[Rfam]
RNA sequence: UAAUUUUUUUGGGGCAAAUCCUCAUCUAGUUUGCAAACUCACACCUGUUUGCUCAAACUCAUCUAUUAUCAUAAGACCGACUACAUCAUUCUUCCCGAAUUGAAAAGAACUUGUCCUUGAUUUCUAUUCCUCCUCCAACUAUUUUAUAUUUUGAAACAUAAUU
Numbered sequence: 001u002a003a004u005u006u007u008u009u010u011g012g013g014g015c016a017a018a019u020c021c022u023c024a025u026c027u028a029g030u031u032u033g034c035a036a037a038c039u040c041a042c043a044c045c046u047g048u049u050u051g052c053u054c055a056a057a058c059u060c061a062u063c064u065a066u067u068a069u070c071a072u073a074a075g076a077c078c079g080a081c082u083a084c085a086u087c088a089u090u091c092u093u094c095c096c097g098a099a100u101u102g103a104a105a106a107g108a109a110c111u112u113g114u115c116c117u118u119g120a121u122u123u124c125u126a127u128u129c130c131u132c133c134u135c136c137a138a139c140u141a142u143u144u145u146a147u148a149u150u151u152u153g154a155a156a157c158a159u160a161a162u163u
Stems, first nucleotide, its partner, number of pairs: 004161002007158001008156002012152001014150001018147002027141005

This 163-nucleotide sequence from Populus tomentosa belongs to the Rfam family "MIR480 microRNA precursor family". A search with the family's covariance model found it, with a score of 70 bits.